A member of the RNA family "Alpha operon ribosome binding site" from Candidatus Enterovibrio altilux, 108 nucleotides long.
Rfam classes the family as a cis-regulatory element.
On this family, see Schlax et al., J Biol Chem 2001: "Translational repression of the Escherichia coli alpha operon mRNA: importance of an mRNA conformational switch and a ternary entrapment complex".
Gene Ontology term of the family: ribosome binding.
From the family's description: The bacterial alpha operon ribosome binding site is surrounded by this complex pseudoknotted structure.
The family's consensus secondary structure is taken from published work.
RNA sequence: GAAGUGGUUAUGCUGCUGCGUAUCCUAAACGGGCUUUGCAGCAGUUCUUCUUGAAAAAGUACUAUGGAGUGAAUAGUGGCCCGUAUUGCAGGCAUUAACAUUCCUGAU
Numbered sequence: 001g002a003a004g005u006g007g008u009u010a011u012g013c014u015g016c017u018g019c020g021u022a023u024c025c026u027a028a029a030c031g032g033g034c035u036u037u038g039c040a041g042c043a044g045u046u047c048u049u050c051u052u053g054a055a056a057a058a059g060u061a062c063u064a065u066g067g068a069g070u071g072a073a074u075a076g077u078g079g080c081c082c083g084u085a086u087u088g089c090a091g092g093c094a095u096u097a098a099c100a101u102u103c104c105u106g107a108u
Stems, first nucleotide, its partner, number of pairs: 004050001006048002011043003024092003030083004039106002